[Rfam]
RNA sequence: AAUGGUUUACAUUGAAUUCCUGAUAAGACGGCAGUCUAAGCCGGAAGCCUUGUAACCGAAUAGAAUAUUGGGGGAAUCUUAAAUG
Numbered sequence: 001a002a003u004g005g006u007u008u009a010c011a012u013u014g015a016a017u018u019c020c021u022g023a024u025a026a027g028a029c030g031g032c033a034g035u036c037u038a039a040g041c042c043g044g045a046a047g048c049c050u051u052g053u054a055a056c057c058g059a060a061u062a063g064a065a066u067a068u069u070g071g072g073g074g075a076a077u078c079u080u081a082a083a084u085g
Stems, first nucleotide, its partner, number of pairs: 017076005025050001027048001029043004056071002
SAM-III riboswitch aptamer (SMK box): an 85-nucleotide RNA sequence from Alloiococcus otitis. Lineage of the source: Bacteria > Bacillota > Bacilli > Lactobacillales > Alloiococcus otitis. For this family Rfam cites "Riboswitches that sense S-adenosylhomocysteine and activate genes involved in coenzyme recycling" (Wang et al., Mol Cell, 2008).